A member of the RNA family "Plant small nucleolar RNA U3" from Rhamnella rubrinervis, 216 nucleotides long.
The family is grouped with related families in Rfam's "U3 clan".
Gene Ontology terms of the family: nucleolus and RNA processing.
Rfam describes the family as follows. Small nucleolar RNAs (snoRNAs) are involved in the processing and modification of rRNA in the nucleolus. There are two main classes of snoRNAs: the box C/D class, and the box H/ACA class. U3 snoRNA is a member of the box C/D class. Indeed, the box C/D element is a subset of the six short sequence elements found in all U3 snoRNAs, namely boxes A, A', B, C, C', and D. The U3 snoRNA secondary structure is characterised by a small 5' domain (with boxes A and A'), and a larger 3' domain (with boxes B, C, C', and D), the two domains being linked by a single-stranded hinge.
It is annotated as a C/D-box small nucleolar RNA.

[Rfam]
RNA sequence: ACGACCUUACUUGAACAGGAUCUGUUCUAUAGGCUCGUACCUCUGUAUCCUUGAGUUCUAAGGAGACAGGAACCUAAACCUGGUGGAUGAAUCAUGACCGUGUGAUCAGAGCGUGAUUAACGGUAUCUGGGAUCUGAUGAUCCUCAGAAGCUGUAGAGGAUCGUUCUCAGCCAGUUACACCUGGCUAGGGAUGGUCACACGGUUGCCUGACAGGUU
Dot-bracket structure: (((.(((.....((((((...))))))...))).).))....((((.((((((.....)))))).))))........(((((..............((((((((((((.((((......(((((.(((((((((....)))).))))).))))).......))))((.((((((......)))))).))..)))))))))))).......))))).